Bacterial RNase P class A: a 380-nucleotide RNA from Vibrio ishigakensis. NCBI's taxonomy places the organism under Bacteria, Pseudomonadati, Pseudomonadota, Vibrionaceae, Vibrio.

RNA sequence: GGAGCUAACCAGAUAGUCGCUGCUUCGUUGAUGUCCUUAGGGAGACUGACGGAGGGGAGGAAAGUCCGGGCUUCAUAGAGCAGGGUGCCAGGUAACGCCUGGGGGGUGCAAGCCUACGACAAGUGCAGCAGAGAGAAUACCGCCGAUGGCCUUCGGGCACAGGUAAGGGUGAAAGGGUGCGGUAAGAGCGCACCGUGCGACUGGCAACAGUUCGUAGCAAGGUAAACUCCACCCGAAGCAAGACCAAAUAGGCCCUCACAUUGCGUUGCUCGCGUAAGGGGGCGGGUAGGUUGCUCGAGCCAGUGAGCGAUUGCUGGCCUAGACGAAUGGCUAUCACCGCGCAAGCGGGACAGAACCCGGCUUAUCGGUAAGCUCCUCCA
Numbered sequence: 001g002g003a004g005c006u007a008a009c010c011a012g013a014u015a016g017u018c019g020c021u022g023c024u025u026c027g028u029u030g031a032u033g034u035c036c037u038u039a040g041g042g043a044g045a046c047u048g049a050c051g052g053a054g055g056g057g058a059g060g061a062a063a064g065u066c067c068g069g070g071c072u073u074c075a076u077a078g079a080g081c082a083g084g085g086u087g088c089c090a091g092g093u094a095a096c097g098c099c100u101g102g103g104g105g106g107u108g109c110a111a112g113c114c115u116a117c118g119a120c121a122a123g124u125g126c127a128g129c130a131g132a133g134a135g136a137a138u139a140c141c142g143c144c145g146a147u148g149g150c151c152u153u154c155g156g157g158c159a160c161a162g163g164u165a166a167g168g169g170u171g172a173a174a175g176g177g178u179g180c181g182g183u184a185a186g187a188g189c190g191c192a193c194c195g196u197g198c199g200a201c202u203g204g205c206a207a208c209a210g211u212u213c214g215u216a217g218c219a220a221g222g223u224a225a226a227c228u229c230c231a232c233c234c235g236a237a238g239c240a241a242g243a244c245c246a247a248a249u250a251g252g253c254c255c256u257c258a259c260a261u262u263g264c265g266u267u268g269c270u271c272g273c274g275u276a277a278g279g280g281g282g283c284g285g286g287u288a289g290g291u292u293g294c295u296c297g298a299g300c301c302a303g304u305g306a307g308c309g310a311u312u313g314c315u316g317g318c319c320u321a322g323a324c325g326a327a328u329g330g331c332u333a334u335c336a337c338c339g340c341g342c343a344a345g346c347g348g349g350a351c352a353g354a355a356c357c358c359g360g361c362u363u364a365u366c367g368g369u370a371a372g373c374u375c376c377u378c379c380a
Stems, first nucleotide, its partner, number of pairs: 001376006008369003011365001012335007020057002023054008062363003066360005071238004078271004083234005088102005103117001104115004118229002123227002125223002140168002142164003147159002150156001176194006195218001196216005201210003242292004252283006262276005299318008
Dot-bracket structure: ((((((.(((((((((((.((.((((((((................)))))))).))....[[[.[[[[[((((...[[[[.((((((((((.....)))))(((((....)))).)((...((((.............(((((..((.(.....).))..)))..)).......((((((.......))))))(((((((((....))).))))).)...))..)))))))))))))...((((......((((((....(((((.]]]]))))).)))))).....))))......((((((((....))))))))..........)))))))....................]]]]]]]].).))).))))))....